The record is a 77-nucleotide sequence from Cyprinodon variegatus, which matches "mir-92 microRNA precursor family" in Rfam.
The match comes from Rfam's covariance-model search (70 bits).
Pairs were carried over by alignment from the consensus structure, which was predicted with PFOLD.
This family represents the microRNA precursor mir-92. Human miR-92 has two predicted hairpin precursor sequences: mir-92-1 on chromosome 13 and mir-92-2 on chromosome X. miR-92 has also been cloned from mouse embryonic stem cells. The mature sequence is excised from the 3' arm of the hairpin.
The source organism's lineage runs through Eukaryota, Vertebrata, Atherinomorphae, Cyprinodontoidei and Cyprinodon.
RNA sequence: UGUCCUAUUCAGGUGGGGAUCGGUGGCAAUGCUGUACUCCUUGAGGUAUUGCACUUGUCCCGGCCUGUAAAGGAGCG
Numbered sequence: 001u002g003u004c005c006u007a008u009u010c011a012g013g014u015g016g017g018g019a020u021c022g023g024u025g026g027c028a029a030u031g032c033u034g035u036a037c038u039c040c041u042u043g044a045g046g047u048a049u050u051g052c053a054c055u056u057g058u059c060c061c062g063g064c065c066u067g068u069a070a071a072g073g074a075g076c077g
Stems, first nucleotide, its partner, number of pairs: 004073003010067005016061005022055003026052008